A member of the RNA family "mir-460 microRNA precursor family" from Anolis carolinensis, 77 nucleotides long. Its family is annotated with RISC complex and miRNA-mediated post-transcriptional gene silencing in the Gene Ontology. It is one of the family's seed sequences.
[Rfam]
RNA sequence: CUCCAUCUUGCCCUCAUUGUACAUGCUGUGUGUAUUCCUUUGGCGUACACAGCGCAUGCAAUGUGGACAGGAGGGAG
Numbered sequence: 001c002u003c004c005a006u007c008u009u010g011c012c013c014u015c016a017u018u019g020u021a022c023a024u025g026c027u028g029u030g031u032g033u034a035u036u037c038c039u040u041u042g043g044c045g046u047a048c049a050c051a052g053c054g055c056a057u058g059c060a061a062u063g064u065g066g067a068c069a070g071g072a073g074g075g076a077g
Stems, first nucleotide, its partner, number of pairs: 012066002015063007024054001026052006
Pairs were carried over by alignment from the consensus structure, which was predicted with RNAalifold.